A member of the RNA family "Bacterial RNase P class A" from Cetobacterium sp. 2A, 345 nucleotides long. From the family's description: Ribonuclease P (RNase P) is a ubiquitous endoribonuclease, found in archaea, bacteria and eukarya as well as chloroplasts and mitochondria. Its best characterised activity is the generation of mature 5'-ends of tRNAs by cleaving the 5'-leader elements of precursor-tRNAs. Cellular RNase Ps are ribonucleoproteins. A search with the family's covariance model found it, with a score of 307 bits.
RNA sequence: AAGGGUAUUAAGGUUAAUCGCUUGCAAUUUAUUGCAAGAGGAAAGUCCGGGCUCCACAGAGCAAAAAGGGUAGCUAACGGCUACUGAAGGAAACUUUAAGGAAAGUGCCACAGAAAAUAGACCGCCAGUCUUUGAUUGGUAAGGGUGAAAUGGCGGUGUAAGAGACCACCAGUUUUUUAGGAGACUAAAAAAGCUAGGUAAACCCCCUUUGGAGCAAGACUAAAUAGGAAAGAUAGAUGGGCUGCUCGUCCACUUUCAGGGUAAGUUGCUUGAGUCUAUAGGCGACUAUAGAUCUAGAUAAAUGAUUGACAAAUACAAAACCCGGCUUAUUUAAUGCCCUUAUUA
Dot-bracket structure: (((((((((((.(((((((.(((((((....)))))))....[[[.[[[[[((((...[[[[.(((.(((((((.....)))))(((((....)))).)((...(((((............(((((((((...)))))))..)).......((.(((.......))).)).(((((((((....)))))))).)..)))..)))))))))))))...((((......(((((.....(((((.]]]]))))))))))......))))......((((((((....))))))))..........)))))))..........]]]]]]]].).))))))))))....